[Rfam]
A member of the RNA family "FuFi-1 RNA", 187 nucleotides long. The family's RNA type in Rfam is small RNA. Rfam's curators put it in the seed alignment.
RNA sequence: UUCGCCAACUAAUGGGCAGCUAAUCCUUUUUACUCAAUCGCAGAACUAAAACUGCGUAAGUGGUGAAGUGUUUCAAGAAACAUUUGGUGCUGCUUAUGUGACUCAACAAGUGCGUUCAGUCUGCAAAACACAUAAGGUAAACAAAUUUAGGCAAGAACUGAUAGGACAGCACUCCUGUCAGUUUUUU
Numbered sequence: 001u002u003c004g005c006c007a008a009c010u011a012a013u014g015g016g017c018a019g020c021u022a023a024u025c026c027u028u029u030u031u032a033c034u035c036a037a038u039c040g041c042a043g044a045a046c047u048a049a050a051a052c053u054g055c056g057u058a059a060g061u062g063g064u065g066a067a068g069u070g071u072u073u074c075a076a077g078a079a080a081c082a083u084u085u086g087g088u089g090c091u092g093c094u095u096a097u098g099u100g101a102c103u104c105a106a107c108a109a110g111u112g113c114g115u116u117c118a119g120u121c122u123g124c125a126a127a128a129c130a131c132a133u134a135a136g137g138u139a140a141a142c143a144a145a146u147u148u149a150g151g152c153a154a155g156a157a158c159u160g161a162u163a164g165g166a167c168a169g170c171a172c173u174c175c176u177g178u179c180a181g182u183u184u185u186u187u
Stems, first nucleotide, its partner, number of pairs: 001067007039056005046150005068131006080099004086093001087172006100121004105116003155184010165173001
Dot-bracket structure: (((((((...............................(((((..{{{{{.)))))....)))))))((((((......((((..([[[[[[)..))))((((.(((......))).))))....))))))..............}}}}}....(((((((((((.]]]]]]).))))))))))...